[Rfam]
RNA sequence: CCCGAGAACUCGGGACGAAAUGUGGAGGGCGUCGAACGCGCUCCGAAUCACAAG
Numbered sequence: 001c002c003c004g005a006g007a008a009c010u011c012g013g014g015a016c017g018a019a020a021u022g023u024g025g026a027g028g029g030c031g032u033c034g035a036a037c038g039c040g041c042u043c044c045g046a047a048u049c050a051c052a053a054g
Stems, first nucleotide, its partner, number of pairs: 001014005017049002024044004
RNA: eL15-Euryarchaeota ribosomal protein leader
Organism: Halogeometricum borinquense